The family of this 88-nucleotide RNA sequence from Todus mexicanus is "Small nucleolar RNA SNORD60".

RNA sequence: GGCCGGGGAUGAUCCCUCUGUACUUUCUGACACCUCGUCUGAGGGCGGCGGCGCCGCGGCCCCUGCUGAGCGCGCACGGCUGAGGCCC
Number, nucleotide and partner (000 for none) at each position: 001g087002g086003c085004c084005g000006g000007g000008g000009a000010u000011g000012a000013u000014c000015c000016c000017u000018c000019u000020g000021u000022a000023c000024u000025u000026u000027c000028u000029g000030a000031c000032a000033c000034c000035u000036c000037g000038u000039c000040u000041g000042a000043g000044g000045g057046c056047g055048g054049c053050g000051g000052c000053g049054c048055c047056g046057c045058g000059g000060c000061c000062c000063c000064u000065g000066c000067u000068g000069a000070g000071c000072g000073c000074g000075c000076a000077c000078g000079g000080c000081u000082g000083a000084g004085g003086c002087c001088c000
Rfam links the family to the GO terms RNA processing and nucleolus.
By type it is a C/D-box small nucleolar RNA.
The match comes from Rfam's covariance-model search (42 bits).
Clan: SNORD60 clan.